This 137-nucleotide RNA from Brassica rapa belongs to the Rfam family "MIR9555 microRNA precursor family". The source organism's lineage runs through Eukaryota, Streptophyta, Euphyllophyta, Spermatophyta and Brassica.
RNA sequence: UUAUAUAUGCGUAUGUAAUUAUGGGAUUCUAAGCUUUACGGGAAACCCAACCGAAAGUUCCUUAAAUAAGAAAUUUUCGAUUGCGUUUCCCGUAAAGCUUAGAACCCCGCAAUUACCAAUUACAUACGCAUAUAUAA
Numbered sequence: 001u002u003a004u005a006u007a008u009g010c011g012u013a014u015g016u017a018a019u020u021a022u023g024g025g026a027u028u029c030u031a032a033g034c035u036u037u038a039c040g041g042g043a044a045a046c047c048c049a050a051c052c053g054a055a056a057g058u059u060c061c062u063u064a065a066a067u068a069a070g071a072a073a074u075u076u077u078c079g080a081u082u083g084c085g086u087u088u089c090c091c092g093u094a095a096a097g098c099u100u101a102g103a104a105c106c107c108c109g110c111a112a113u114u115a116c117c118a119a120u121u122a123c124a125u126a127c128g129c130a131u132a133u134a135u136a137a
Stems, first nucleotide, its partner, number of pairs: 001137017018113003022109004027104015070089005076083001
Source information
The family's consensus secondary structure was predicted with RNAalifold. Rfam 15.1 lists 42 matches to the family in 5 species.